[Rfam]
RNA sequence: CCGGGGCUUGUUGUGAGCUGUAUCCCGUGCGGCUGCAGUUUUGCUUGUAGCACCAUGGGAUUCAGCUCAAGCACUCCCCAC
Numbered sequence: 001c002c003g004g005g006g007c008u009u010g011u012u013g014u015g016a017g018c019u020g021u022a023u024c025c026c027g028u029g030c031g032g033c034u035g036c037a038g039u040u041u042u043g044c045u046u047g048u049a050g051c052a053c054c055a056u057g058g059g060a061u062u063c064a065g066c067u068c069a070a071g072c073a074c075u076c077c078c079c080a081c
Base pairs, nucleotide, nucleotide: 003079004078005077006076009073012071014069015068016067018065019064020063023060024059025058026057027056028055029054033050034049035048036047037046
The family of this 81-nucleotide RNA from Pieris brassicae is "mir-998 microRNA precursor family". The family's consensus secondary structure was predicted with RNAalifold. Rfam links the family to the GO terms RISC complex and miRNA-mediated post-transcriptional gene silencing. It scores 65 bits against the family's covariance model.